[Rfam]
RNA sequence: UGCGACCGGCAAAUCGGCACGACCAGCUCCUGUUGAAUCCCCCAGGUACGGAAGUGAGCAAGGGUAGAUGGUUGUAGCGGUGCGAUGUUCGGUUUGCCAUUU
Numbered sequence: 001u002g003c004g005a006c007c008g009g010c011a012a013a014u015c016g017g018c019a020c021g022a023c024c025a026g027c028u029c030c031u032g033u034u035g036a037a038u039c040c041c042c043c044a045g046g047u048a049c050g051g052a053a054g055u056g057a058g059c060a061a062g063g064g065u066a067g068a069u070g071g072u073u074g075u076a077g078c079g080g081u082g083c084g085a086u087g088u089u090c091g092g093u094u095u096g097c098c099a100u101u102u
Stems, first nucleotide, its partner, number of pairs: 008098008017088003020084002022081002

The record is a 102-nucleotide RNA from a Cytophagales bacterium, which matches "Bacteroidales small SRP" in Rfam. Rfam classes the family as a non-coding RNA gene. Its Rfam clan is "SRP clan". For this family Rfam cites "A high-resolution transcriptome map identifies small RNA regulation of metabolism in the gut microbe Bacteroides thetaiotaomicron" (Ryan et al., Nat Commun, 2020). A search with the family's covariance model found it, with a score of 81 bits.